[Rfam]
RNA sequence: UGAUGAUGAGGUGGCAAGAUGCCGGCAUAGCUGAUUUGUUUGAAUUGCGGCUGUGUCACAUCUCGCCACUUAACCACACA
Numbered sequence: 001u002g003a004u005g006a007u008g009a010g011g012u013g014g015c016a017a018g019a020u021g022c023c024g025g026c027a028u029a030g031c032u033g034a035u036u037u038g039u040u041u042g043a044a045u046u047g048c049g050g051c052u053g054u055g056u057c058a059c060a061u062c063u064c065g066c067c068a069c070u071u072a073a074c075c076a077c078a079c080a
Base pairs, nucleotide, nucleotide: 005075007073009071010070011069012068013067014066015065017063018062019061020060021059024057025056026055027054028053029052030051031050

The family of this 80-nucleotide RNA sequence from Nesidiocoris tenuis is "mir-31 microRNA precursor family".
The organism belongs to Nesidiocoris, within Eukaryota.
Its Rfam clan is "mir-31 microRNA precursor family".
A search with the family's covariance model found it, with a score of 60 bits.
Pairs were carried over by alignment from the consensus structure, which was predicted with RNAalifold.